The record is a 75-nucleotide RNA sequence from Crocodylus porosus, which matches "Mammalian CPEB3 ribozyme" in Rfam. The match comes from Rfam's covariance-model search (44 bits). The source organism's lineage runs through Eukaryota, Bilateria, Vertebrata, Teleostomi and Crocodylus. The mammalian CPEB3 ribozyme is a self cleaving RNA located in the second intron of the CPEB3 gene which belongs to a family of genes regulating messenger RNA polyadenylation. This ribozyme is highly conserved and found only in mammals. The CPEB3 ribozyme is structurally and biochemically related to the human hepatitis delta virus (HDV) ribozyme and the HDV ribozyme is proposed to have arisen from the human transcriptome.
RNA sequence: GCUGGAGUUCAAGGCAAGGGCAGAAGUGUUCUUGGCACAGCCAUAUCAGAUUCCAACAAAUCUGCAAAUUCUGCU
Numbered sequence: 001g002c003u004g005g006a007g008u009u010c011a012a013g014g015c016a017a018g019g020g021c022a023g024a025a026g027u028g029u030u031c032u033u034g035g036c037a038c039a040g041c042c043a044u045a046u047c048a049g050a051u052u053c054c055a056a057c058a059a060a061u062c063u064g065c066a067a068a069u070u071c072u073g074c075u
Stems, first nucleotide, its partner, number of pairs: 013042003019075007026038003047064006
Dot-bracket structure: ............[[[...((((((((((.......))).]]]....((((((......))))))....)))))))